[Rfam]
RNA: Mammalian CPEB3 ribozyme
RNA sequence: AGUUCACGUUUGAGGCCAUAGCAGAAGCACUCACAGCAUGGCCCUGUCAGACUUCAAUGGAUUUGUGAAUUCUGCU
Number, nucleotide and partner (000 for none) at each position: 001a000002g000003u000004u000005c000006a000007c000008g000009u000010u000011u000012g044013a000014g043015g042016c041017c040018a000019u000020a076021g075022c074023a073024g072025a071026a070027g039028c000029a000030c000031u000032c000033a000034c000035a000036g000037c000038a000039u027040g017041g016042c015043c014044c012045u000046g000047u000048c065049a064050g063051a062052c000053u060054u059055c000056a000057a000058u000059g054060g053061a000062u051063u050064u049065g048066u000067g000068a000069a000070u026071u025072c024073u023074g022075c021076u020